[Rfam]
RNA sequence: UGGUGGCACCAACCGGUACCAAAGGGGGCAUUCGUACUGGUUGGUGGCACAAACCGGUACGGAUGCCCCCCUUUGGUACCGGUUGGUGCCACCAA
Number, nucleotide and partner (000 for none) at each position: 001u000002g000003g092004u091005g090006g089007c088008a087009c086010c085011a084012a083013c082014c081015g080016g079017u078018a077019c076020c075021a074022a073023a072024g071025g070026g069027g068028g066029c065030a000031u000032u000033c061034g060035u059036a000037c057038u056039g000040g000041u000042u000043g000044g050045u049046g000047g000048c000049a045050c044051a000052a000053a000054c000055c000056g038057g037058u000059a035060c034061g033062g000063a000064u000065g029066c028067c000068c027069c026070c025071c024072u023073u022074u021075g020076g019077u018078a017079c016080c015081g014082g013083u012084u011085g010086g009087u008088g007089c006090c005091a004092c003093c000094a000095a000